[Rfam]
RNA sequence: UUGCCAUGAUGAUUUCCAUUGGGUUUCGCAUGUUGCUGACUAUCAGUGAUGCCUUUUCUCUUGGCUGUCUGAGCAG
Numbered sequence: 001u002u003g004c005c006a007u008g009a010u011g012a013u014u015u016c017c018a019u020u021g022g023g024u025u026u027c028g029c030a031u032g033u034u035g036c037u038g039a040c041u042a043u044c045a046g047u048g049a050u051g052c053c054u055u056u057u058c059u060c061u062u063g064g065c066u067g068u069c070u071g072a073g074c075a076g
Base pairs, nucleotide, nucleotide: 001076002075003074004073
The record is a 76-nucleotide RNA from Ailuropoda melanoleuca, which matches "Small nucleolar RNA SNORD53/SNORD92" in Rfam. It scores 82 bits against the family's covariance model. On this family, see Kiss-Laszlo et al., Cell 1996: "Site-specific ribose methylation of preribosomal RNA: a novel function for small nucleolar RNAs". By type it is a C/D-box small nucleolar RNA. The pairing is the family consensus, mapped onto this sequence. The family is grouped with related families in Rfam's "SNORD52 clan". Rfam 15.1 lists 2,250 matches to the family in 671 species.